Shown here is a 215-nucleotide sequence from Oryza nivara, a member of the family "MIR807 microRNA precursor family".
[Rfam]
RNA sequence: AACCACACUAUCAAUGAAUGGAUUCACCCGUGAUAUGAUGUAGUUGUUCCACCUAGGACGAAGACGUGGCAUCCUAUUAUGGUUGUUCCACCUAGGAUGAGAACGUGGCAUCCUAUUAAUUUCGUGCAAUGGUUGAUAAUAGGAUGCCACGUCCUCAUCCUAAGUGGAACAACCACAUCAUAUCACGGGUGAAUCCAUUCAUUGAUAGUGCGGUU
Dot-bracket structure: ((((.((.(((((((.(((.((((((((.((((.(((((.(.((((((..((.((.((....(((...(((((((((((.........................................................)))))))))))...)))....)).)).))..)))))).).))))).)))).)))))))).))).))))))).)).))))
For this family Rfam cites "Rice embryogenic calli express a unique set of microRNAs, suggesting regulatory roles of microRNAs in plant post-embryogenic development" (Luo et al., FEBS Lett, 2006). A search with the family's covariance model found it, with a score of 170 bits. Rfam 15.1 lists 1,514 matches to the family in 13 species. The organism belongs to Oryza, within Eukaryota.